[Rfam]
This 98-nucleotide RNA sequence from Arcicella aurantiaca belongs to the Rfam family "TPP riboswitch aptamer (THI element)". Rfam's curators write: Vitamin B(1) in its active form thiamin pyrophosphate (TPP) is an essential coenzyme that is synthesised by coupling of pyrimidine and thiazole moieties in bacteria. NCBI's taxonomy places the organism under Bacteria, Cytophagia, Cytophagales, Flectobacillaceae, Arcicella. The base pairs follow the family's consensus structure, which is taken from published work.
RNA sequence: UCCAAACUUUAGGGGUGCCUUUAAUAUUACGGGCUGAGAUUAUACCCUCAAAACCUGAACAGCGUAGUUGCUGCGUAGGAAAAAGUAAGGCAGACAUU
Dot-bracket structure: .....(((((((((.(((((..........)))).......)..)))).....((((..((((......))))..))))..)))))............